The family of this 356-nucleotide part of an RNA from Salinarchaeum sp. IM2453 is "Archaeal large subunit ribosomal RNA". A search with the family's covariance model found it, with a score of 2849 bits. Taxonomically the source falls in Salinarchaeum (Archaea, Halobacteria, Halobacteriales, Natronoarchaeaceae). The family's consensus secondary structure is taken from published work.
RNA sequence: CAUAGUAGCAGCGUUAGUCGGGUUGAAAUCUCGACGGCCGUAAGGGCAAGGGUUCCUCGGCAAUGUUUAUCAGCCGAGGGUUAGCCGGUCCUAAGUCCUCUCGUAACUCGCGGGGGACAAUGGGAAACAGGUUAAUAUUCCUGUGCCUCCGUCCACUCAAAGCCGACGUCCUGGGGUAUGCCAAGCCGGGCAAUCGCCCGGUCGAAGCGUCCAACGUCGUGGAAGCCGUAAUGGCACGAAGCGACCGAAUGACGUGAUCGGGCAACUUGGCGCAACCCAGGACCCGUGAAAAGGCGAGGACGGUGACCGUACCCAGAACCGACACAGGUGCCCUGGCGGAGAAAGCCAAGGCCUGU
Numbered sequence: 001c002a003u004a005g006u007a008g009c010a011g012c013g014u015u016a017g018u019c020g021g022g023u024u025g026a027a028a029u030c031u032c033g034a035c036g037g038c039c040g041u042a043a044g045g046g047c048a049a050g051g052g053u054u055c056c057u058c059g060g061c062a063a064u065g066u067u068u069a070u071c072a073g074c075c076g077a078g079g080g081u082u083a084g085c086c087g088g089u090c091c092u093a094a095g096u097c098c099u100c101u102c103g104u105a106a107c108u109c110g111c112g113g114g115g116g117a118c119a120a121u122g123g124g125a126a127a128c129a130g131g132u133u134a135a136u137a138u139u140c141c142u143g144u145g146c147c148u149c150c151g152u153c154c155a156c157u158c159a160a161a162g163c164c165g166a167c168g169u170c171c172u173g174g175g176g177u178a179u180g181c182c183a184a185g186c187c188g189g190g191c192a193a194u195c196g197c198c199c200g201g202u203c204g205a206a207g208c209g210u211c212c213a214a215c216g217u218c219g220u221g222g223a224a225g226c227c228g229u230a231a232u233g234g235c236a237c238g239a240a241g242c243g244a245c246c247g248a249a250u251g252a253c254g255u256g257a258u259c260g261g262g263c264a265a266c267u268u269g270g271c272g273c274a275a276c277c278c279a280g281g282a283c284c285c286g287u288g289a290a291a292a293g294g295c296g297a298g299g300a301c302g303g304u305g306a307c308c309g310u311a312c313c314c315a316g317a318a319c320c321g322a323c324a325c326a327g328g329u330g331c332c333c334u335g336g337c338g339g340a341g342a343a344a345g346c347c348a349a350g351g352c353c354u355g356u
Stems, first nucleotide, its partner, number of pairs: 017035006036353004044333004050313002055079006064072002086309003090123002095118006102110002127144005147305001149303006162295003168283008179272005185202005207255004216245005225235003261266001319328002334348004